[Rfam]
RNA sequence: UGACCCACCGGGGUAACGGAUACCUGUUUUUUUUUU
Numbered sequence: 001u002g003a004c005c006c007a008c009c010g011g012g013g014u015a016a017c018g019g020a021u022a023c024c025u026g027u028u029u030u031u032u033u034u035u036u
Base pairs, nucleotide, nucleotide: 003014004013005012006011017026018025019024
Description:
The record is a 36-nucleotide sequence from Erinaceus europaeus, which matches "XIST RNA A repeat" in Rfam. Rfam classes the family as a small RNA.